[Rfam]
RNA sequence: AGUUUACAGUAAAAUAAAUAUUUGAGUGGAGCCUGCGACUCCUUGCCGACUGGGGUAAGUCACUUGAGCGUUUGUUGGCACGUAAAAG
Numbered sequence: 001a002g003u004u005u006a007c008a009g010u011a012a013a014a015u016a017a018a019u020a021u022u023u024g025a026g027u028g029g030a031g032c033c034u035g036c037g038a039c040u041c042c043u044u045g046c047c048g049a050c051u052g053g054g055g056u057a058a059g060u061c062a063c064u065u066g067a068g069c070g071u072u073u074g075u076u077g078g079c080a081c082g083u084a085a086a087a088g
Stems, first nucleotide, its partner, number of pairs: 003086005009081002013076007021068009031056004
Shown here is an 88-nucleotide RNA from Drosophila rhopaloa, a member of the family "mir-289 microRNA precursor family". Lineage of the source: Eukaryota > Endopterygota > Acalyptratae > Drosophilini > Sophophora. Rfam links the family to the GO terms RISC complex and miRNA-mediated post-transcriptional gene silencing. It scores 96 bits against the family's covariance model.